RNA sequence: GGGAAACGGUGCAUCGGUUUGGGCCAAGAGCUGCCGAGCCGGAAGAAGGACAGGCACG
Numbered sequence: 001g002g003g004a005a006a007c008g009g010u011g012c013a014u015c016g017g018u019u020u021g022g023g024c025c026a027a028g029a030g031c032u033g034c035c036g037a038g039c040c041g042g043a044a045g046a047a048g049g050a051c052a053g054g055c056a057c058g
Stems, first nucleotide, its partner, number of pairs: 014042009028057001030055002
RNA: Ma3 gene ribosomal frameshift signal
Organism: Tilletia walkeri